[Rfam]
RNA sequence: ACGACCUUACUUGAACAGGAUCUGUUCUAUAGGCUCGUACCUCUGUAUCCUUGAGUUCUAAGGAUACAGGAACUUCAGUAUGGUUGAUGAAACAGGACCGCACGAUCAGAGCGUGAUUAAUGGCUUCCGAUCUAUGAUGUAGACCGUGCAGCUGUAGAUGAUUGUUCUCAGCUUGGCCUUGGCCUGCUAUGAUGAUCGUGCGGUUGUCUGACAGACU
Numbered sequence: 001a002c003g004a005c006c007u008u009a010c011u012u013g014a015a016c017a018g019g020a021u022c023u024g025u026u027c028u029a030u031a032g033g034c035u036c037g038u039a040c041c042u043c044u045g046u047a048u049c050c051u052u053g054a055g056u057u058c059u060a061a062g063g064a065u066a067c068a069g070g071a072a073c074u075u076c077a078g079u080a081u082g083g084u085u086g087a088u089g090a091a092a093c094a095g096g097a098c099c100g101c102a103c104g105a106u107c108a109g110a111g112c113g114u115g116a117u118u119a120a121u122g123g124c125u126u127c128c129g130a131u132c133u134a135u136g137a138u139g140u141a142g143a144c145c146g147u148g149c150a151g152c153u154g155u156a157g158a159u160g161a162u163u164g165u166u167c168u169c170a171g172c173u174u175g176g177c178c179u180u181g182g183c184c185u186g187c188u189a190u191g192a193u194g195a196u197c198g199u200g201c202g203g204u205u206g207u208c209u210g211a212c213a214g215a216c217u
Base pairs, nucleotide, nucleotide: 001038002037003035005033006032007031013027014026015025016024017023018022043069044068045067046066048064049063050062051061052060053059078216079215081213082212097204098203099202100201101200102199103198104197105196106195107194108193110166111165112164113163120155121154122153123152124151125150127148128146129145131143132142133141134140135139170188171187172186175184176183177182
Background: Rfam assigns this 217-nucleotide sequence from Papaver somniferum to the family "Plant small nucleolar RNA U3". The family's RNA type in Rfam is C/D-box small nucleolar RNA. From the family's description: Small nucleolar RNAs (snoRNAs) are involved in the processing and modification of rRNA in the nucleolus. There are two main classes of snoRNAs: the box C/D class, and the box H/ACA class. U3 snoRNA is a member of the box C/D class. Indeed, the box C/D element is a subset of the six short sequence elements found in all U3 snoRNAs, namely boxes A, A', B, C, C', and D. The U3 snoRNA secondary structure is characterised by a small 5' domain (with boxes A and A'), and a larger 3' domain (with boxes B, C, C', and D), the two domains being linked by a single-stranded hinge. The family has 24 seed sequences and 3,759 matches in Rfam 15.1. Lineage of the source: Eukaryota > Tracheophyta > Papaveraceae > Papaveroideae > Papaver.